[Rfam]
RNA: U5 spliceosomal RNA
Organism: Elachura formosa
RNA sequence: GUACUCCGGUUUCUCUUCGGAUCAUGUCAAUCUUUCACCUUUUACUAAAGAUUUCCAUGGAGAGGAACAGGCAGGAGUGUUAAGAAACUUUCUGAGGCUCCAUUUCGGUGGAGCU
Numbered sequence: 001g002u003a004c005u006c007c008g009g010u011u012u013c014u015c016u017u018c019g020g021a022u023c024a025u026g027u028c029a030a031u032c033u034u035u036c037a038c039c040u041u042u043u044a045c046u047a048a049a050g051a052u053u054u055c056c057a058u059g060g061a062g063a064g065g066a067a068c069a070g071g072c073a074g075g076a077g078u079g080u081u082a083a084g085a086a087a088c089u090u091u092c093u094g095a096g097g098c099u100c101c102a103u104u105u106c107g108g109u110g111g112a113g114c115u
Stems, first nucleotide, its partner, number of pairs: 003078004009068011029053007095115001097114006